Rfam assigns this 137-nucleotide RNA from Brevibacillus fulvus to the family "c-di-AMP riboswitch aptamer (ydaO/yuaA leader)". Lineage of the source: Bacteria > Bacillati > Bacilli > Paenibacillaceae > Brevibacillus. A search with the family's covariance model found it, with a score of 99 bits.
RNA sequence: AAUCGAAAAAAGCCGAGUUCCAUUGAUUUGGAAACGGGGGAACCAAGUUUUUGGGGUGAAUAGCUGUGUUUGCACAGCUUAGGGUACCUUUCAACCGAACCCUUCAGCUAACCUCGUAGGCUUGGAAGGGAGCAGAA
Numbered sequence: 001a002a003u004c005g006a007a008a009a010a011a012g013c014c015g016a017g018u019u020c021c022a023u024u025g026a027u028u029u030g031g032a033a034a035c036g037g038g039g040g041a042a043c044c045a046a047g048u049u050u051u052u053g054g055g056g057u058g059a060a061u062a063g064c065u066g067u068g069u070u071u072g073c074a075c076a077g078c079u080u081a082g083g084g085u086a087c088c089u090u091u092c093a094a095c096c097g098a099a100c101c102c103u104u105c106a107g108c109u110a111a112c113c114u115c116g117u118a119g120g121c122u123u124g125g126a127a128g129g130g131a132g133c134a135g136a137a
Stems, first nucleotide, its partner, number of pairs: 011122004018033005034117006044053002054102003062079004082096002085093001